[Rfam]
RNA: MIR1888 microRNA precursor family
Organism: Arabidopsis thaliana
RNA sequence: CCAAAUUCUUAUGCUAAGAUUUGUGAAGAAAGAGCUCUUAUAUAAGAAUUUUUAGGCUUAUAUAAUUUUACUUUUUUCACAAAUCUUAGCCUAAAAUUUGG
Numbered sequence: 001c002c003a004a005a006u007u008c009u010u011a012u013g014c015u016a017a018g019a020u021u022u023g024u025g026a027a028g029a030a031a032g033a034g035c036u037c038u039u040a041u042a043u044a045a046g047a048a049u050u051u052u053u054a055g056g057c058u059u060a061u062a063u064a065a066u067u068u069u070a071c072u073u074u075u076u077u078c079a080c081a082a083a084u085c086u087u088a089g090c091c092u093a094a095a096a097u098u099u100g101g
Stems, first nucleotide, its partner, number of pairs: 001101007009093001013091001014089019034069001040063007